[Rfam]
RNA: MIR2912 microRNA precursor family
RNA sequence: UUUAGAACUCGAGAUAUGGGCUGAACAGUGUCUGACCUACAUGACAGAUUCUGACUUCUCUUUUGUUGUUACAAUUUGAACUUGAAAGCGACCAUUUUGAAUCUUGGACUCUUCAUGAAAGUUUUAGGCCUAUGUCUUAGCUUUCCAUA
Numbered sequence: 001u002u003u004a005g006a007a008c009u010c011g012a013g014a015u016a017u018g019g020g021c022u023g024a025a026c027a028g029u030g031u032c033u034g035a036c037c038u039a040c041a042u043g044a045c046a047g048a049u050u051c052u053g054a055c056u057u058c059u060c061u062u063u064u065g066u067u068g069u070u071a072c073a074a075u076u077u078g079a080a081c082u083u084g085a086a087a088g089c090g091a092c093c094a095u096u097u098u099g100a101a102u103c104u105u106g107g108a109c110u111c112u113u114c115a116u117g118a119a120a121g122u123u124u125u126a127g128g129c130c131u132a133u134g135u136c137u138u139a140g141c142u143u144u145c146c147a148u149a
Base pairs, nucleotide, nucleotide: 003147005145006144007143008140009139011138012137013136014135015134016133017132018131019130020129021127022126023125024124025123027122028116029115030114034112038108041105043103044102047098048097053092056090061085062084065081066080067079